[Rfam]
RNA: Plastid-rps12 3UTR RNA
Organism: Gossypium klotzschianum
RNA sequence: GGUUUUUAUUGGUGCAAAUCCAAUCUUGAAAUUUAAUAUGAGAAAAAAUUACCCAUCGGUAGCAAAUGCUUAGCCAUUAAGCGAGGAAAAUCUUAU
Numbered sequence: 001g002g003u004u005u006u007u008a009u010u011g012g013u014g015c016a017a018a019u020c021c022a023a024u025c026u027u028g029a030a031a032u033u034u035a036a037u038a039u040g041a042g043a044a045a046a047a048a049u050u051a052c053c054c055a056u057c058g059g060u061a062g063c064a065a066a067u068g069c070u071u072a073g074c075c076a077u078u079a080a081g082c083g084a085g086g087a088a089a090a091u092c093u094u095a096u
Stems, first nucleotide, its partner, number of pairs: 009023004052085001054083001055077002058074001060072003